RNA sequence: AUAAGGUGUAGAGGUAGCCUCUCCUAGGCUUUGUCUGUGAAUUUGACUGAGACAUAGCCUGAUUGAGGCUAACUCUAGCCUUAAUU
Numbered sequence: 001a002u003a004a005g006g007u008g009u010a011g012a013g014g015u016a017g018c019c020u021c022u023c024c025u026a027g028g029c030u031u032u033g034u035c036u037g038u039g040a041a042u043u044u045g046a047c048u049g050a051g052a053c054a055u056a057g058c059c060u061g062a063u064u065g066a067g068g069c070u071a072a073c074u075c076u077a078g079c080c081u082u083a084a085u086u
Base pairs, nucleotide, nucleotide: 012074013073015071016070017069018068019067020066027059028058029057030056032054033053034052035051036050
The record is an 86-nucleotide RNA from Asbolus verrucosus, which matches "mir-282 microRNA precursor family" in Rfam. The match comes from Rfam's covariance-model search (73 bits). The literature on the family includes a 2009 paper in BMC Genomics by Li et al., "Direct sequencing and expression analysis of a large number of miRNAs in Aedes aegypti and a multi-species survey of novel mosquito miRNAs". Rfam 15.1 lists 136 matches to the family in 128 species.